This 31-nucleotide sequence from Aquarana catesbeiana belongs to the Rfam family "Iron response element II".
From the family's description: IRE, TFRC, SLC40A1, SDHB, SLC11A2, CDC42BPA, ACO2, ALAS2_H.SAPIENS, CDC14A, EPAS1, ALAS2, qoxD, Hao1, NDUFS1, transferrin, Aconitate.
Gene Ontology term of the family: response to iron ion.
The family's RNA type in Rfam is cis-regulatory element.
The source organism's lineage runs through Eukaryota, Bilateria, Gnathostomata, Euteleostomi and Aquarana.
The family's consensus secondary structure is taken from published work.
On this family, see Koeller et al., Proc Natl Acad Sci U S A 1989: "A cytosolic protein binds to structural elements within the iron regulatory region of the transferrin receptor mRNA".
It scores 32 bits against the family's covariance model.

RNA sequence: UGUUUAUCAGCGACAGGGCUCGCUAUAAAUU
Numbered sequence: 001u002g003u004u005u006a007u008c009a010g011c012g013a014c015a016g017g018g019c020u021c022g023c024u025a026u027a028a029a030u031u
Base pairs, nucleotide, nucleotide: 002030003029004028005027006026007025009024010023011022012021013020014018